[Rfam]
Nucleotides: 084
Base pairs, nucleotide, nucleotide: 001084002083003082004081006079007078008077013072014071015070016069017068018067019066024061025060026059027058028057029056030055031054
Number, partner (000 for none) and nucleotide at each position: 001084c002083a003082g004081c005000u006079g007078u008077c009000u010000c011000u012000u013072g014071u015070g016069c017068u018067u019066g020000a021000u022000c023000u024061a025060a026059c027058c028057a029056u030055g031054u032000g033000c034000c035000g036000c037000c038000g039000c040000c041000u042000a043000c044000u045000c046000u047000c048000g049000c050000c051000u052000c053000c054031a055030c056029a057028u058027g059026g060025u061024u062000c063000c064000g065000u066019c067018a068017a069016g070015c071014a072013c073000c074000a075000g076000u077008g078007a079006c080000c081004g082003c083002u084001g

The family of this 84-nucleotide sequence from Albula goreensis is "mir-218 microRNA precursor family".
Rfam links the family to the GO terms RISC complex and miRNA-mediated post-transcriptional gene silencing.
A reference for the family is Chen et al. (2005), "The developmental miRNA profiles of zebrafish as determined by small RNA cloning", Genes Dev.
Taxonomically the source falls in Albula (Eukaryota, Neopterygii, Elopomorpha, Albuliformes).